This 92-nucleotide RNA sequence belongs to the Rfam family "Tick-borne Flavivirus exoribonuclease-resistant RNA element".

RNA sequence: AGAGUGCACCACGGCAGCACGCCAGUGAGAGUGGCGACGGGAGAAUGGUCGAUCCCGACGUAGGGCACUCUGUAGAAUUUGUGAGACCCCCC
Numbered sequence: 001a002g003a004g005u006g007c008a009c010c011a012c013g014g015c016a017g018c019a020c021g022c023c024a025g026u027g028a029g030a031g032u033g034g035c036g037a038c039g040g041g042a043g044a045a046u047g048g049u050c051g052a053u054c055c056c057g058a059c060g061u062a063g064g065g066c067a068c069u070c071u072g073u074a075g076a077a078u079u080u081g082u083g084a085g086a087c088c089c090c091c092c
Stems, first nucleotide, its partner, number of pairs: 001071007009063001011061003020036005038057005
Overview:
Rfam's curators write: The exoribonuclease-resistant RNA elements (xrRNA) are described throughout all groups of flaviviruses. Usually, each virus harbors two xrRNAs, xrRNA1 and xrRNA2, in the beginning of the 3' UTR. The formation of these stem-loops, especially xrRNA1, is vital to ensure resistance against XRN1 activity. The Y-shaped stem-loop is also termed SL II and SL IV, respectively. In order to function as xrRNA, the sequence downstream is needed as well, since the upper loop region forms a pseudoknot (PK) with the single-stranded region directly downstream to its respective hairpin. Pairs were carried over by alignment from the consensus structure, which was predicted with LocARNA.